[Rfam]
RNA: MIR6152 microRNA precursor family
Organism: Nicotiana tabacum
RNA sequence: UGAAUAGAUUAUUGUAUUCGACUGUAUUCACGGCGUGAAGUAGCGGAUUACACUUUUUUUAAACAGAAAGUGAAUCAAUUAACAUAAUGGACUCCU
Numbered sequence: 001u002g003a004a005u006a007g008a009u010u011a012u013u014g015u016a017u018u019c020g021a022c023u024g025u026a027u028u029c030a031c032g033g034c035g036u037g038a039a040g041u042a043g044c045g046g047a048u049u050a051c052a053c054u055u056u057u058u059u060u061a062a063a064c065a066g067a068a069a070g071u072g073a074a075u076c077a078a079u080u081a082a083c084a085u086a087a088u089g090g091a092c093u094c095c096u
Stems, first nucleotide, its partner, number of pairs: 002095001004093001009090007017082002020080002023077002026075006035064002037059004042054002